[Rfam]
RNA sequence: GCCAGGAAAAGGAAGAAAAAGAGUGCAUUAGAGCGGUGGGAAUGAGAACAUCUGAGGAAAGGCUAGCUUGCUGGUUUUCUCCUGUGAAGGCGGAAAUUUGGUGCGGUGUUUUUCCUGAUGCCUCUCAUUUCUAUUGUUCUUAUGCACUCCUUCCUUUUCCUUUUGGCC
Dot-bracket structure: .........((((.(((...(((..(((.((((((.(((((((((((.(((..(.(((((((..............................................)))))))).)))..))))))))))).)))))).)))..))).))).))))..........

A member of the RNA family "MIR2118 microRNA precursor family" from Panicum virgatum, 168 nucleotides long. Its family is annotated with RISC complex and miRNA-mediated post-transcriptional gene silencing in the Gene Ontology. On this family, see Xue et al., Nucleic Acids Res 2009: "Characterization and expression profiles of miRNAs in rice seeds". A search with the family's covariance model found it, with a score of 116 bits. The base pairs follow the family's consensus structure, which was predicted with RNAalifold.